Shown here is an 87-nucleotide RNA from Geosporobacter ferrireducens, a member of the family "c-di-GMP-I riboswitch aptamer". Pairs were carried over by alignment from the consensus structure, which is taken from published work. It scores 88 bits against the family's covariance model.
[Rfam]
RNA sequence: AAAAGAAAAAGGCAAACUUAUCGAAAGGUAAGGACGCAAAGCUAUGGGUCUAAGGAGUAUAAUUUCUAUGAUCGCCAAGUUGCCGGG
Number, nucleotide and partner (000 for none) at each position: 001a000002a000003a000004a000005g000006a000007a000008a000009a000010a000011g000012g037013c036014a000015a000016a000017c032018u031019u030020a029021u028022c027023g000024a000025a000026a000027g022028g021029u020030a019031a018032g017033g000034a000035c000036g013037c012038a000039a000040a081041g080042c079043u078044a000045u077046g076047g075048g072049u071050c070051u000052a000053a000054g000055g066056a065057g064058u000059a000060u000061a000062a000063u000064u057065u056066c055067u000068a000069u000070g050071a049072u048073c000074g000075c047076c046077a045078a043079g042080u041081u040082g000083c000084c000085g000086g000087g000
The source organism's lineage runs through Bacteria, Bacillati, Bacillota, Peptostreptococcales and Geosporobacter. A reference for the family is Weinberg et al. (2007), "Identification of 22 candidate structured RNAs in bacteria using the CMfinder comparative genomics pipeline", Nucleic Acids Res. Its family is annotated with cyclic-di-GMP binding in the Gene Ontology.